[Rfam]
RNA sequence: CGCAUGGGGUCCGCGAACACCCCGUAAGGCUUUGGCCCAAGCGUCGCAUCCACUGACGGUUUUCAGAAAGGAUGCACAAUG
Numbered sequence: 001c002g003c004a005u006g007g008g009g010u011c012c013g014c015g016a017a018c019a020c021c022c023c024g025u026a027a028g029g030c031u032u033u034g035g036c037c038c039a040a041g042c043g044u045c046g047c048a049u050c051c052a053c054u055g056a057c058g059g060u061u062u063u064c065a066g067a068a069a070g071g072a073u074g075c076a077c078a079a080u081g
Stems, first nucleotide, its partner, number of pairs: 005024006046075006
The family of this 81-nucleotide sequence from Yoonia tamlensis is "chrB-a RNA".
The family has 163 seed sequences and 347 matches in Rfam 15.1.
Lineage of the source: Bacteria > Pseudomonadati > Pseudomonadota > Rhodobacterales > Yoonia.
The family's consensus secondary structure is taken from published work.